Shown here is a 105-nucleotide sequence from Thalassorhabdomicrobium marinisediminis, a member of the family "TPP riboswitch aptamer (THI element)". The family's consensus secondary structure is taken from published work. A search with the family's covariance model found it, with a score of 72 bits.

RNA sequence: GGUGCUACCUCGGGGGGCUUCACCAGAAGCUGAGAUGCCAUGACUGGCGGACCCGUUGAACCUGAACCGGUUAAGACCGGCGGAGGGAAGGUCACGGGUUGCCCC
Numbered sequence: 001g002g003u004g005c006u007a008c009c010u011c012g013g014g015g016g017g018c019u020u021c022a023c024c025a026g027a028a029g030c031u032g033a034g035a036u037g038c039c040a041u042g043a044c045u046g047g048c049g050g051a052c053c054c055g056u057u058g059a060a061c062c063u064g065a066a067c068c069g070g071u072u073a074a075g076a077c078c079g080g081c082g083g084a085g086g087g088a089a090g091g092u093c094a095c096g097g098g099u100u101g102c103c104c105c
Base pairs, nucleotide, nucleotide: 007092008091009090010089011055012054013053014052017030018029019028020027021026037048038047039046040045061086062085063084067080068079069078070077